U2 spliceosomal RNA: a 196-nucleotide RNA sequence from Gossypium gossypioides. Rfam describes the family as follows. U2 is a small nuclear RNA (snRNA) component of the spliceosome (involved in pre-mRNA splicing). Complementary binding between U2 snRNA (in an area lying towards the 5' end but 3' to hairpin I) and the branchpoint sequence (BPS) of the intron results the bulging out of an unpaired adenosine, on the BPS, which initiates a nucleophilic attack at the intronic 5' splice site, thus starting the first of two transesterification reactions that mediate splicing. It is annotated as a spliceosomal small nuclear RNA.

Nucleotides: 196
Base pairs, nucleotide, nucleotide: 008027009026010025012023013022014021015020048067049066051064052063053062070084071083072082073081074080075079113148114147115146116145117144118143119142127138128137130135151189152188153187154186155185156184158180159179160178161177162176163175
Number, partner (000 for none) and nucleotide at each position: 001000a002000u003000a004000c005000c006000u007000u008027u009026c010025u011000c012023g013022g014021c015020c016000u017000u018000u019000u020015g021014g022013c023012u024000a025010a026009g027008a028000u029000c030000a031000a032000g033000u034000g035000u036000a037000g038000u039000g040000u041000c042000u043000g044000u045000u046000c047000u048067u049066a050000u051064u052063a053062g054000u055000u056000u057000a058000u059000u060000a061000u062053c063052u064051g065000u066049u067048a068000c069000c070084u071083g072082g073081u074080c075079c076000a077000u078000u079075g080074g081073a082072u083071c084070a085000c086000a087000c088000g089000a090000u091000a092000u093000u094000g095000a096000a097000u098000u099000u100000a101000u102000u103000u104000u105000u106000u107000g108000a109000g110000u111000g112000g113148g114147a115146g116145a117144g118143u119142c120000c121000a122000u123000c124000a125000c126000a127138g128137u129000a130135g131000c132000u133000u134000g135130c136000g137128a138127c139000u140000g141000u142119g143118g144117c145116u146115c147114u148113c149000g150000a151189g152188c153187g154186u155185c156184g157000c158180c159179c160178a161177g162176g163175u164000u165000u166000u167000g168000c169000a170000c171000u172000a173000c174000u175163g176162c177161u178160u179159g180158g181000g182000u183000c184156u185155g186154g187153c188152g189151c190000a191000c192000a193000u194000g195000u196000u
About this RNA
The family's consensus secondary structure is taken from published work. The source organism's lineage runs through Eukaryota, Magnoliopsida, Mesangiospermae, eudicotyledons and Gossypium.